[Rfam]
RNA sequence: GAUAAUGGGGGCGGGAAACCCCCACACCGAUAGACCAAGGUUUCCUGAUCAACGUUAAUCGGAUCAGGGUCAGUCGGGACCUAAGGAUAACCCGAACGGGGAUUCCGAUGGCAAAUGGGUUAAUAUUCCCAUACCGCACAUACAGGUGACGGAGUGACGGAGUGAUGAAAGGACCGCGCGGUGACGGAAUACCGCGUUGAAGGGAGUAGGUAUUUGGGCUGUAGUCAAAUGCGCAGCCUUAGCCGAACCUGAUAGUACCGCGAUCCUACGGGAGAGCGGAUAGUGUCCCUAAGUGCUUCCAAGAAAAACUUCUGGCGAUAAGCGUAUGUGCGCCCGUACCGCAAACCGACACAGGUGGUCAAGGAGAGAAUCCUGAGGUGCU
Numbered sequence: 001g002a003u004a005a006u007g008g009g010g011g012c013g014g015g016a017a018a019c020c021c022c023c024a025c026a027c028c029g030a031u032a033g034a035c036c037a038a039g040g041u042u043u044c045c046u047g048a049u050c051a052a053c054g055u056u057a058a059u060c061g062g063a064u065c066a067g068g069g070u071c072a073g074u075c076g077g078g079a080c081c082u083a084a085g086g087a088u089a090a091c092c093c094g095a096a097c098g099g100g101g102a103u104u105c106c107g108a109u110g111g112c113a114a115a116u117g118g119g120u121u122a123a124u125a126u127u128c129c130c131a132u133a134c135c136g137c138a139c140a141u142a143c144a145g146g147u148g149a150c151g152g153a154g155u156g157a158c159g160g161a162g163u164g165a166u167g168a169a170a171g172g173a174c175c176g177c178g179c180g181g182u183g184a185c186g187g188a189a190u191a192c193c194g195c196g197u198u199g200a201a202g203g204g205a206g207u208a209g210g211u212a213u214u215u216g217g218g219c220u221g222u223a224g225u226c227a228a229a230u231g232c233g234c235a236g237c238c239u240u241a242g243c244c245g246a247a248c249c250u251g252a253u254a255g256u257a258c259c260g261c262g263a264u265c266c267u268a269c270g271g272g273a274g275a276g277c278g279g280a281u282a283g284u285g286u287c288c289c290u291a292a293g294u295g296c297u298u299c300c301a302a303g304a305a306a307a308a309c310u311u312c313u314g315g316c317g318a319u320a321a322g323c324g325u326a327u328g329u330g331c332g333c334c335c336g337u338a339c340c341g342c343a344a345a346c347c348g349a350c351a352c353a354g355g356u357g358g359u360c361a362a363g364g365a366g367a368g369a370a371u372c373c374u375g376a377g378g379u380g381c382u
Base pairs, nucleotide, nucleotide: 006024007023008022009021010020011019025380026379027378028377033360034359035358036357039340040339044068045067046066047065048064049063053061054060075336076335077334078333080111081110085106086105087104091100092099093098115132116131117130118129119128135332136331137330138329139328140327141326142325143324146316147315151312152311153310154309155308159299160298161297162296171288172287173286174285176197177196178195179194180193181192198254202250203249204248209244210243211242216239217238218237219236220235221234222233224232225231258279259278260277261276346355347354362374363373364372365371

The family of this 382-nucleotide part of an RNA from Cecembia lonarensis is "Bacterial large subunit ribosomal RNA". The match comes from Rfam's covariance-model search (2713 bits). Lineage of the source: Bacteria > Cytophagia > Cyclobacteriaceae > Cecembia > Cecembia lonarensis.